This 86-nucleotide RNA from Enterovirus betarhino belongs to the Rfam family "Human rhinovirus internal cis-acting regulatory element (CRE)". It is one of the family's seed sequences.

RNA sequence: GGCUUGGGAGAAGAGCUUGAGGAAGUCAUUGUCGAGAAAACGAAACAGACAGUGGCUUCAAUUGCUUCUGGAUCUAAACACACCCA
Numbered sequence: 001g002g003c004u005u006g007g008g009a010g011a012a013g014a015g016c017u018u019g020a021g022g023a024a025g026u027c028a029u030u031g032u033c034g035a036g037a038a039a040a041c042g043a044a045a046c047a048g049a050c051a052g053u054g055g056c057u058u059c060a061a062u063u064g065c066u067u068c069u070g071g072a073u074c075u076a077a078a079c080a081c082a083c084c085c086a
Stems, first nucleotide, its partner, number of pairs: 001074002004071007022059002025056009
From the family's description: This family represents a cis-acting regulatory element (CRE) from the human rhinoviruses. The CRE is located within the genome segment encoding the capsid proteins so is found in a protein coding region. The family has been found to be essential for efficient viral replication and it has been suggested that the CRE is required for initiation of minus-strand RNA synthesis. The literature on the family includes a 1998 paper in RNA by McKnight and Lemon, "The rhinovirus type 14 genome contains an internally located RNA structure that is required for viral replication". Lineage of the source: Viruses > Riboviria > Picornaviridae > Ensavirinae > Rhinovirus B.